[Rfam]
RNA sequence: AUCCCUUCGCAGUGGCGAUAUCAUAGCCUAGGAGGUCUAGCCGAGGCGUUGAUUAGUGCUGGUUGAAAACUUAAACCAAUACCCCGCCGGGACGACUUGCACUACAGCGGCCCUGGCAAUUUUGAUAGUCUCGUCAGAGA
Numbered sequence: 001a002u003c004c005c006u007u008c009g010c011a012g013u014g015g016c017g018a019u020a021u022c023a024u025a026g027c028c029u030a031g032g033a034g035g036u037c038u039a040g041c042c043g044a045g046g047c048g049u050u051g052a053u054u055a056g057u058g059c060u061g062g063u064u065g066a067a068a069a070c071u072u073a074a075a076c077c078a079a080u081a082c083c084c085c086g087c088c089g090g091g092a093c094g095a096c097u098u099g100c101a102c103u104a105c106a107g108c109g110g111c112c113c114u115g116g117c118a119a120u121u122u123u124g125a126u127a128g129u130c131u132c133g134u135c136a137g138a139g140a
Stems, first nucleotide, its partner, number of pairs: 020053004024048001026047003034042003086117003089113003093109002098104001129140004

Rfam assigns this 140-nucleotide RNA from Esox lucius to the family "U4 spliceosomal RNA". It scores 82 bits against the family's covariance model. Rfam's curators write: U4 small nuclear RNA (U4 snRNA) is a component of the major U2-dependent spliceosome. By type it is a spliceosomal small nuclear RNA. On this family, see Vidovic et al., Mol Cell 2000: "Crystal structure of the spliceosomal 15.5kD protein bound to a U4 snRNA fragment".